Notes: The record is a 300-nucleotide sequence from Sinocyclocheilus grahami, which matches "Nuclear RNase P" in Rfam. Pairs were carried over by alignment from the consensus structure, which is taken from published work. It is annotated as a ribozyme. About the family: Ribonuclease P (RNase P) is a ubiquitous endoribonuclease, found in archaea, bacteria and eukarya as well as chloroplasts and mitochondria. Taxonomically the source falls in Sinocyclocheilus (Eukaryota, Deuterostomia, Vertebrata, Cyprinoidei).
[Rfam]
RNA sequence: GUGGAAGGAAGCUUACUGUAGAGGUCACGUGCUGAGUGCUCGUCACUCUAUCAAUCACCUCGGGGAAGGUCUGAGACAAAAGCCAAUCGCUGUCCUCACAGGACAUCAUCUGAACAGAUGAGCGAGCGCACAGGAAACAUGGGUCAGAGCGCGGUGUUCUCGCACGAGACGUUGAUACCCGCGCAGUUUCAGCGGAUCAACUGAUGCGAUCCCCGCCAACUUGGAAAUACUCGCGGCUGGCGAAUGAGUUCGAUGUGUGAGCUAGUACAAGAUACUAGAACCCAAUUACUCUCCCUCCGC
Numbered sequence: 001g002u003g004g005a006a007g008g009a010a011g012c013u014u015a016c017u018g019u020a021g022a023g024g025u026c027a028c029g030u031g032c033u034g035a036g037u038g039c040u041c042g043u044c045a046c047u048c049u050a051u052c053a054a055u056c057a058c059c060u061c062g063g064g065g066a067a068g069g070u071c072u073g074a075g076a077c078a079a080a081a082g083c084c085a086a087u088c089g090c091u092g093u094c095c096u097c098a099c100a101g102g103a104c105a106u107c108a109u110c111u112g113a114a115c116a117g118a119u120g121a122g123c124g125a126g127c128g129c130a131c132a133g134g135a136a137a138c139a140u141g142g143g144u145c146a147g148a149g150c151g152c153g154g155u156g157u158u159c160u161c162g163c164a165c166g167a168g169a170c171g172u173u174g175a176u177a178c179c180c181g182c183g184c185a186g187u188u189u190c191a192g193c194g195g196a197u198c199a200a201c202u203g204a205u206g207c208g209a210u211c212c213c214c215g216c217c218a219a220c221u222u223g224g225a226a227a228u229a230c231u232c233g234c235g236g237c238u239g240g241c242g243a244a245u246g247a248g249u250u251c252g253a254u255g256u257g258u259g260a261g262c263u264a265g266u267a268c269a270a271g272a273u274a275c276u277a278g279a280a281c282c283c284a285a286u287u288a289c290u291c292u293c294c295c296u297c298c299g300c
Base pairs, nucleotide, nucleotide: 001300002299003298004297007294008293009292012261013260014259015258016257021061022060023059024058034048035047036046037045038044074287075286081238082237083236084235091105092104093103094102095101106121107120108119109118110117111116122234123233124232125231126230128228142220262278263277264276265275266274267273